[Rfam]
RNA sequence: AUUCCUUCUAGGGCCUUGGUCUAGUUGGUAAAGAAUAAUAAAUUAAAAAAAAAAAAAAAAAAAAAAAAAAGUAUCUGUUCUUAUUAGUUUAAUAUCUGGUACGCCGGCACAGUCCGGCACAUAUAUUAAUCUGAUUUUUGGCAUUAGGUCAUGGGAUCAUAAGUUUACCUUGCCUGACCACGGGUUGCUUCGGCUUUGCACUACUGCUGAGCGCGGCCCAGAUUGA
Numbered sequence: 001a002u003u004c005c006u007u008c009u010a011g012g013g014c015c016u017u018g019g020u021c022u023a024g025u026u027g028g029u030a031a032a033g034a035a036u037a038a039u040a041a042a043u044u045a046a047a048a049a050a051a052a053a054a055a056a057a058a059a060a061a062a063a064a065a066a067a068a069a070a071g072u073a074u075c076u077g078u079u080c081u082u083a084u085u086a087g088u089u090u091a092a093u094a095u096c097u098g099g100u101a102c103g104c105c106g107g108c109a110c111a112g113u114c115c116g117g118c119a120c121a122u123a124u125a126u127u128a129a130u131c132u133g134a135u136u137u138u139u140g141g142c143a144u145u146a147g148g149u150c151a152u153g154g155g156a157u158c159a160u161a162a163g164u165u166u167a168c169c170u171u172g173c174c175u176g177a178c179c180a181c182g183g184g185u186u187g188c189u190u191c192g193g194c195u196u197u198g199c200a201c202u203a204c205u206g207c208u209g210a211g212c213g214c215g216g217c218c219c220a221g222a223u224u225g226a
Base pairs, nucleotide, nucleotide: 007061082101083100084099085098086097087096103118104117105116106115107114108112147179148178149177150176151175153173161170163168182219183218184217185216186215187214189211190210191209192208193207194206
Dot-bracket structure: ......(.....................................................)....................((((((........)))))).((((((...).)))))............................(((((.(.......(.(....).)..).)))))..((((((.((((((...........))))))..)))))).......
U2 spliceosomal RNA: a 226-nucleotide RNA from Hydra vulgaris.
The family is grouped with related families in Rfam's "U2 clan".
From the family's description: U2 is a small nuclear RNA (snRNA) component of the spliceosome (involved in pre-mRNA splicing).
Rfam classes the family as a spliceosomal small nuclear RNA.